[Rfam]
RNA sequence: CAGGGUUGAUCCUCUUUCCUUAACUCACACUGCUGUGUCUUUUUAUUUAUUUCACAGUUGUGUGAGUUGAGUACAGAGUGUCAGUCCA
Numbered sequence: 001c002a003g004g005g006u007u008g009a010u011c012c013u014c015u016u017u018c019c020u021u022a023a024c025u026c027a028c029a030c031u032g033c034u035g036u037g038u039c040u041u042u043u044u045a046u047u048u049a050u051u052u053c054a055c056a057g058u059u060g061u062g063u064g065a066g067u068u069g070a071g072u073a074c075a076g077a078g079u080g081u082c083a084g085u086c087c088a
Stems, first nucleotide, its partner, number of pairs: 004086007012078002019071010034056004
About this RNA:
Shown here is an 88-nucleotide RNA sequence from Accipiter nisus, a member of the family "mir-1426 microRNA precursor family". The family has 2 seed sequences and 326 matches in Rfam 15.1. The base pairs follow the family's consensus structure, which was predicted with RNAalifold. The source organism's lineage runs through Eukaryota, Sauria, Coelurosauria, Neoaves and Accipiter.